This 230-nucleotide RNA belongs to the Rfam family "IS605-orfB-I RNA".
RNA sequence: CCUAUAUAUACGGCUAACCACCCAAGAGAGUAGAAGUCGUCCCUUUAUGGGCUCAAAUUUAGAACGAUAUAGUAAAGCUUAUUGCCAAAGACUUAAACUACUUUGUAGUAAAAGUGAUAAUACGAUAGCUAUAUCGGAAUGGUUUGCCGUAUGACCAAGAUUGAAAUAUCUAAACACGAUGAGAUAAUAGAGUUGGAGCCACUUCUACUCAUAUUAUUUUUUACGGUAAA
Numbered sequence: 001c002c003u004a005u006a007u008a009u010a011c012g013g014c015u016a017a018c019c020a021c022c023c024a025a026g027a028g029a030g031u032a033g034a035a036g037u038c039g040u041c042c043c044u045u046u047a048u049g050g051g052c053u054c055a056a057a058u059u060u061a062g063a064a065c066g067a068u069a070u071a072g073u074a075a076a077g078c079u080u081a082u083u084g085c086c087a088a089a090g091a092c093u094u095a096a097a098c099u100a101c102u103u104u105g106u107a108g109u110a111a112a113a114g115u116g117a118u119a120a121u122a123c124g125a126u127a128g129c130u131a132u133a134u135c136g137g138a139a140u141g142g143u144u145u146g147c148c149g150u151a152u153g154a155c156c157a158a159g160a161u162u163g164a165a166a167u168a169u170c171u172a173a174a175c176a177c178g179a180u181g182a183g184a185u186a187a188u189a190g191a192g193u194u195g196g197a198g199c200c201a202c203u204u205c206u207a208c209u210c211a212u213a214u215u216a217u218u219u220u221u222u223a224c225g226g227u228a229a230a
Base pairs, nucleotide, nucleotide: 001051002050003049004048005047006046008044010040011039012038013037014036015035018033020031021030022028065136066135067134068133069132070131071130072129078124080122081121082120083119091115092114094112140157141156142155143154144153146227147226148225149224150223151222152176159170160169161168181220182219183218184217185216186215187214188213189212190210191209192208193207
The family's RNA type in Rfam is small RNA.